Shown here is a 68-nucleotide RNA sequence from Eptatretus burgeri, a member of the family "mir-375 microRNA precursor family". The literature on the family includes a 2005 paper in Genes Dev by Chen et al., "The developmental miRNA profiles of zebrafish as determined by small RNA cloning". The base pairs follow the family's consensus structure, which was predicted with RNAalifold. NCBI's taxonomy places the organism under Eukaryota, Opisthokonta, Cyclostomata, Myxiniformes, Eptatretus. Its family is annotated with miRNA-mediated post-transcriptional gene silencing and RISC complex in the Gene Ontology.

RNA sequence: CGUAACGUCGAGCCCGACGCACAAAGCUCCGCCGCUCGCAAGUUUUGUUCGUUCGGCUCGCGUCACGG
Numbered sequence: 001c002g003u004a005a006c007g008u009c010g011a012g013c014c015c016g017a018c019g020c021a022c023a024a025a026g027c028u029c030c031g032c033c034g035c036u037c038g039c040a041a042g043u044u045u046u047g048u049u050c051g052u053u054c055g056g057c058u059c060g061c062g063u064c065a066c067g068g
Stems, first nucleotide, its partner, number of pairs: 001067003005063003009060006018051002021048004026043002